[Rfam]
RNA sequence: GGGGCAGUCAAGGUUUCGACGGGGAUUUUGAAGCCGGAGAAGCGAGCCGCAUGGUGAUGCGUUAAAUGGCCAAAUUAAAAUUAAACGCUAACGAAAAUUUAGCAUACGCUGCCUAAUGACAGCAGUCGGCUCUAGUGCACUCACACACUAGAAUCCCGGCUUCGACUAUGUGAGAAACGACACGUGCAAAGCUUUGAGCACGCGGGCGUAUUAUGAAGCUACCAAGACCCUUAGGGUGCAUGCUCUCGACCGGUUGCGGGAAUCUUAAAUAACAUGCUACGCUCGUAGAAGGACGGGGGAUGGAUUUUCGGACAUGGGUUCGACUCCCAUCUGCUCCAUAC
Numbered sequence: 001g002g003g004g005c006a007g008u009c010a011a012g013g014u015u016u017c018g019a020c021g022g023g024g025a026u027u028u029u030g031a032a033g034c035c036g037g038a039g040a041a042g043c044g045a046g047c048c049g050c051a052u053g054g055u056g057a058u059g060c061g062u063u064a065a066a067u068g069g070c071c072a073a074a075u076u077a078a079a080a081u082u083a084a085a086c087g088c089u090a091a092c093g094a095a096a097a098u099u100u101a102g103c104a105u106a107c108g109c110u111g112c113c114u115a116a117u118g119a120c121a122g123c124a125g126u127c128g129g130c131u132c133u134a135g136u137g138c139a140c141u142c143a144c145a146c147a148c149u150a151g152a153a154u155c156c157c158g159g160c161u162u163c164g165a166c167u168a169u170g171u172g173a174g175a176a177a178c179g180a181c182a183c184g185u186g187c188a189a190a191g192c193u194u195u196g197a198g199c200a201c202g203c204g205g206g207c208g209u210a211u212u213a214u215g216a217a218g219c220u221a222c223c224a225a226g227a228c229c230c231u232u233a234g235g236g237u238g239c240a241u242g243c244u245c246u247c248g249a250c251c252g253g254u255u256g257c258g259g260g261a262a263u264c265u266u267a268a269a270u271a272a273c274a275u276g277c278u279a280c281g282c283u284c285g286u287a288g289a290a291g292g293a294c295g296g297g298g299g300a301u302g303g304a305u306u307u308u309c310g311g312a313c314a315u316g317g318g319u320u321c322g323a324c325u326c327c328c329a330u331c332u333g334c335u336c337c338a339u340a341c
Stems, first nucleotide, its partner, number of pairs: 001337007020310009034297002037294001043285005048061005053071003108123004124161006131152007140174006181206001183204004190220006222259002226255004234247003238277004314330005
RNA: transfer-messenger RNA
Organism: Lachnospiraceae bacterium YSD2013